This 176-nucleotide RNA sequence belongs to the Rfam family "malK-I RNA". It is annotated as a cis-regulatory element. It is one of the family's seed sequences. The base pairs follow the family's consensus structure, which is taken from published work.
RNA sequence: UAAACCCGUCCCACGGCACUCCACUUUAUGUCGGGGAUGAGCAAAAGAAAGGAGCGAUACCGCUUUGUUCAGCGGUGCGGCAGCGUGGAGACCUGCCGUAAGGCCCACGGGCGAAAGCUUCCCAUGGGCGAGACGGGGACGCGGAGGCGGAACCGCCAUGAACAAACAAGAUGGCA
Dot-bracket structure: ......((((((.(((((..........)))))))))))....................[[[[.(((((((]]]]((((((((.((....))))))))))..(((((.(((.........))).)))))..(.(((...(((....)))...))).).)))))))...........